[Rfam]
RAGATH-7 RNA: a 214-nucleotide RNA sequence from Buchavirus intestinalis. It scores 149 bits against the family's covariance model. The organism belongs to Buchavirus intestinalis, within Viruses. On this family, see Weinberg et al., Nat Chem Biol 2015: "New classes of self-cleaving ribozymes revealed by comparative genomics analysis".
RNA sequence: AUAAUACAAUAUUAGAUAUAGAUACGCUAUGCACUGCUAAGGAUAUCUAAAUUGUAUUACAAUCCACGUGGUAGAGUCAUAGUUAGGUUCGCUAUGGUGCAACUCUUUAAGGCAAUAACGAACUAAUCCUAAGCAAGUAAUGGAGAAAUGCCAGGGUCACUAUCUAGCCAUAAUAGUGCUUGACAGUAUGAUACUAACUGAACAAUAAGUAUCA
Dot-bracket structure: .(((((((((.(((((......((.((........))))......)))))))))))))).............((((.((((((.......))))))......))))....................[[[....(((((...]]]..............(((((.........))))))))))......(((((((............)))))))